[Rfam]
RNA sequence: AUUGCAAGCUCAAGGCAUUAGCAGAGGCACUAAUGGUGCAGCCCUGUCAGAUUCCAACAAAUCUGUGAAUUCUGCU
Numbered sequence: 001a002u003u004g005c006a007a008g009c010u011c012a013a014g015g016c017a018u019u020a021g022c023a024g025a026g027g028c029a030c031u032a033a034u035g036g037u038g039c040a041g042c043c044c045u046g047u048c049a050g051a052u053u054c055c056a057a058c059a060a061a062u063c064u065g066u067g068a069a070u071u072c073u074g075c076u
Base pairs, nucleotide, nucleotide: 014043015042016041020076021075022074023073024072025071026070027039028038029037048065049064050063051062052061053060
Source information:
Rfam assigns this 76-nucleotide RNA sequence from Alligator sinensis to the family "Mammalian CPEB3 ribozyme". About the family: The mammalian CPEB3 ribozyme is a self cleaving RNA located in the second intron of the CPEB3 gene which belongs to a family of genes regulating messenger RNA polyadenylation. This ribozyme is highly conserved and found only in mammals. The CPEB3 ribozyme is structurally and biochemically related to the human hepatitis delta virus (HDV) ribozyme and the HDV ribozyme is proposed to have arisen from the human transcriptome. There is currently only one other known self cleaving ribozyme in mammals, the CoTC motif. Pairs were carried over by alignment from the consensus structure, which is taken from published work. Rfam 15.1 lists 5,706 matches to the family in 197 species.